[Rfam]
RNA sequence: AAAUGCAGGAGCAAUACCCAAUUUCUUGUUCUGUUAAGAGGCUGGGUAUUGCUCCUG
Number, nucleotide and partner (000 for none) at each position: 001a000002a000003a000004u000005g000006c057007a056008g055009g054010a053011g052012c051013a050014a049015u048016a047017c000018c000019c000020a043021a000022u000023u040024u039025c038026u037027u036028g035029u000030u000031c000032u000033g000034u000035u028036a027037a026038g025039a024040g023041g000042c000043u020044g000045g000046g000047u016048a015049u014050u013051g012052c011053u010054c009055c008056u007057g006
Background
Plastid-psbA-4 3UTR RNA: a 57-nucleotide RNA sequence from Aconitum carmichaelii. Rfam describes the family as follows. Plastid psbA-4 is a non-coding RNA (ncRNA) present in plastids. It was identified in inverted repeat sequences in the 3 prime untranslate region (3UTR) of photosystem II quinone-binding protein (psbA). The base pairs follow the family's consensus structure, which was predicted with LocARNA. The family is grouped with related families in Rfam's "Plastid-psbA 3UTR RNA clan". For this family Rfam cites "Retrograde signaling in plants: A critical review focusing on the GUN pathway and beyond" (Richter et al., Plant Commun, 2023). It is annotated as a cis-regulatory element. The source organism's lineage runs through Eukaryota, Viridiplantae, Mesangiospermae, Ranunculales and Aconitum.